[Rfam]
RNA sequence: UAAUUCCUUUGGGGCAGGGUGUAAUUCCCGACCGACGGUGAUAGGUAACCGCUUUACCUAAAGUCCGUGACCCGGAGCAUGAGAAUGCGAAGGUGGAUUUGGUGCAAUUCCAAAGCCGACAGUAAAGUCUGGAUGAGAAAAGGAAGAA
Numbered sequence: 001u002a003a004u005u006c007c008u009u010u011g012g013g014g015c016a017g018g019g020u021g022u023a024a025u026u027c028c029c030g031a032c033c034g035a036c037g038g039u040g041a042u043a044g045g046u047a048a049c050c051g052c053u054u055u056a057c058c059u060a061a062a063g064u065c066c067g068u069g070a071c072c073c074g075g076a077g078c079a080u081g082a083g084a085a086u087g088c089g090a091a092g093g094u095g096g097a098u099u100u101g102g103u104g105c106a107a108u109u110c111c112a113a114a115g116c117c118g119a120c121a122g123u124a125a126a127g128u129c130u131g132g133a134u135g136a137g138a139a140a141a142g143g144a145a146g147a148a
Base pairs, nucleotide, nucleotide: 004145005144006143007142008141009140010139017029018028019027031128032127033118034117035068036067037066038065063116064115072093073092098114099113100112101111102110120131121130122129

FMN riboswitch aptamer (RFN element): a 148-nucleotide RNA sequence from Natronobacillus azotifigens.
The match comes from Rfam's covariance-model search (113 bits).
The RFN element is a highly conserved domain that is found frequently in the 5'-untranslated regions of prokaryotic mRNAs that encode for flavin mononucleotide (FMN) biosynthesis and transport proteins.
NCBI's taxonomy places the organism under Bacteria, Bacillati, Bacilli, Bacillaceae, Natronobacillus.